[Rfam]
RNA sequence: GCACCUGCCUCUUUCCUAUUCCUGGCUGUGCAGUGCAGGUCUGGGGGCACUUGGUGCUUACAGCACAGCAGUGGAAAUCCAGAUGGGUUCUUCUCCCCUGGUUUGGGGCUCAUCUCUACACCUCUGCAACACCA
Numbered sequence: 001g002c003a004c005c006u007g008c009c010u011c012u013u014u015c016c017u018a019u020u021c022c023u024g025g026c027u028g029u030g031c032a033g034u035g036c037a038g039g040u041c042u043g044g045g046g047g048c049a050c051u052u053g054g055u056g057c058u059u060a061c062a063g064c065a066c067a068g069c070a071g072u073g074g075a076a077a078u079c080c081a082g083a084u085g086g087g088u089u090c091u092u093c094u095c096c097c098c099u100g101g102u103u104u105g106g107g108g109c110u111c112a113u114c115u116c117u118a119c120a121c122c123u124c125u126g127c128a129a130c131a132c133c134a
Stems, first nucleotide, its partner, number of pairs: 001057005013047006021039002068127004073122001081115008095107003
Dot-bracket structure: (((((.......((((((..((...............))..)))))).....)))))..........((((.(.......((((((((......(((.......)))))))))))......).)))).......

Annotation:
The record is a 134-nucleotide RNA sequence from Falcunculus frontatus, which matches "Small nucleolar RNA SNORA55" in Rfam. It scores 104 bits against the family's covariance model. Rfam describes the family as follows. ACA55 is a member of the H/ACA class of snoRNA that guide the sites of modification of uridines to pseudouridines. Rfam classes the family as an H/ACA-box small nucleolar RNA. Gene Ontology terms of the family: RNA processing and nucleolus. The source organism's lineage runs through Eukaryota, Amniota, Sauropsida, Sauria and Falcunculus. The base pairs follow the family's consensus structure, which was predicted with PFOLD.